RNA sequence: CUUGUGGAUUGUUAUAUCAAAUGAGAGUAGAUUUUAUACCUCAGAGUAUAAAGACAAAAUCAGACAGGAUGAAGCAAGAA
Dot-bracket structure: (((((...(((((........(((.....(.((((((((......)))))))).)....))))))))......)))))..
Numbered sequence: 001c002u003u004g005u006g007g008a009u010u011g012u013u014a015u016a017u018c019a020a021a022u023g024a025g026a027g028u029a030g031a032u033u034u035u036a037u038a039c040c041u042c043a044g045a046g047u048a049u050a051a052a053g054a055c056a057a058a059a060u061c062a063g064a065c066a067g068g069a070u071g072a073a074g075c076a077a078g079a080a
Stems, first nucleotide, its partner, number of pairs: 001078005009067005022062003030055001032053008
This 80-nucleotide sequence belongs to the Rfam family "RAGATH-18 RNA". It is one of the family's seed sequences.